[Rfam]
RNA: Yersinia sRNA 224
RNA sequence: CGAGAUAGCGACAAUGUGCUUUACACGGCGAUGAUGGGUAGAUCGUAAAGACGCUGUGAAUACAUCCCUGUACGCUCGAGUUGCGCCAUCCCUGGCGCAAACGCUUU
Numbered sequence: 001c002g003a004g005a006u007a008g009c010g011a012c013a014a015u016g017u018g019c020u021u022u023a024c025a026c027g028g029c030g031a032u033g034a035u036g037g038g039u040a041g042a043u044c045g046u047a048a049a050g051a052c053g054c055u056g057u058g059a060a061u062a063c064a065u066c067c068c069u070g071u072a073c074g075c076u077c078g079a080g081u082u083g084c085g086c087c088a089u090c091c092c093u094g095g096c097g098c099a100a101a102c103g104c105u106u107u
Base pairs, nucleotide, nucleotide: 013107014106016104017103018102020028021027030077031076041066042065043064045063046062047061051057052056081100082099083098084097085096086095087094088093